[Rfam]
Background
Rfam assigns this 88-nucleotide sequence from Desulfofundulus thermobenzoicus to the family "c-di-GMP-I riboswitch aptamer". A search with the family's covariance model found it, with a score of 69 bits. Pairs were carried over by alignment from the consensus structure, which is taken from published work. Gene Ontology term of the family: cyclic-di-GMP binding. The organism belongs to Desulfofundulus, within Bacteria.

Nucleotides: 088
Base pairs, nucleotide, nucleotide: 012038013037017033018032019031020030022029023028041082042081043080044079046078047077048076049073050072051071056067057066058065059064
Number, partner (000 for none) and nucleotide at each position: 001000a002000u003000u004000g005000u006000c007000c008000a009000g010000g011000g012038g013037c014000a015000a016000a017033c018032u019031u020030c021000a022029c023028c024000g025000a026000a027000a028023g029022g030020g031019a032018g033017g034000g035000g036000c037013g038012c039000a040000a041082a042081g043080c044079c045000a046078c047077g048076g049073g050072c051071c052000u053000a054000c055000a056067g057066c058065g059064g060000u061000u062000c063000c064059c065058c066057g067056c068000u069000a070000u071051g072050g073049c074000a075000g076048c077047c078046g079044g080043g081042u082041u083000g084000c085000g086000a087000c088000a